[Rfam]
RNA sequence: GAGAGUCAACCGCUUAAUCGCCCCGCGAGGGGCGAGCCGGGGACCCAACCAGGGCCGCAAGGUCUUGACCGGGGUGAAUCGCCGCGCCUGAUGCAGCUCGUCAGGCAACGCGUAGGGCAUCUUCCAGCCCGAACCCGACAGCUAACCCGGCAGGCGCAGGGAGACAUAAA
Numbered sequence: 001g002a003g004a005g006u007c008a009a010c011c012g013c014u015u016a017a018u019c020g021c022c023c024c025g026c027g028a029g030g031g032g033c034g035a036g037c038c039g040g041g042g043a044c045c046c047a048a049c050c051a052g053g054g055c056c057g058c059a060a061g062g063u064c065u066u067g068a069c070c071g072g073g074g075u076g077a078a079u080c081g082c083c084g085c086g087c088c089u090g091a092u093g094c095a096g097c098u099c100g101u102c103a104g105g106c107a108a109c110g111c112g113u114a115g116g117g118c119a120u121c122u123u124c125c126a127g128c129c130c131g132a133a134c135c136c137g138a139c140a141g142c143u144a145a146c147c148c149g150g151c152a153g154g155c156g157c158a159g160g161g162a163g164a165c166a167u168a169a170a
Stems, first nucleotide, its partner, number of pairs: 011156004018035007036151006046071001072136003080112003115130004
RNA: c-di-AMP riboswitch aptamer (ydaO/yuaA leader)
Organism: Gordonia crocea